[Rfam]
RNA sequence: GAGUUGGCUUUAGCUCAGCAGUUCCUUCGAAUCAAGCCAGUUUGCUUGUUAACCACUCUUGCUUGCAAGUUUAAGACCCGAGGGCACUCUCCAAUCCUUAA
Numbered sequence: 001g002a003g004u005u006g007g008c009u010u011u012a013g014c015u016c017a018g019c020a021g022u023u024c025c026u027u028c029g030a031a032u033c034a035a036g037c038c039a040g041u042u043u044g045c046u047u048g049u050u051a052a053c054c055a056c057u058c059u060u061g062c063u064u065g066c067a068a069g070u071u072u073a074a075g076a077c078c079c080g081a082g083g084g085c086a087c088u089c090u091c092c093a094a095u096c097c098u099u100a101a
Base pairs, nucleotide, nucleotide: 003095004094005093006092007091013085014084015083016082019080021078026075027074029072030071

This 101-nucleotide RNA sequence from Cnephaeus nilssonii belongs to the Rfam family "Vault RNA". Rfam classes the family as a non-coding RNA gene. The source organism's lineage runs through Eukaryota, Chordata, Eutheria, Laurasiatheria and Cnephaeus. A search with the family's covariance model found it, with a score of 48 bits. This family of RNAs are found as part of the enigmatic vault ribonucleoprotein complex. The complex consists of a major vault protein (MVP), two minor vault proteins (VPARP and TEP1), and several small untranslated RNA molecules. It has been suggested that the vault complex is involved in drug resistance.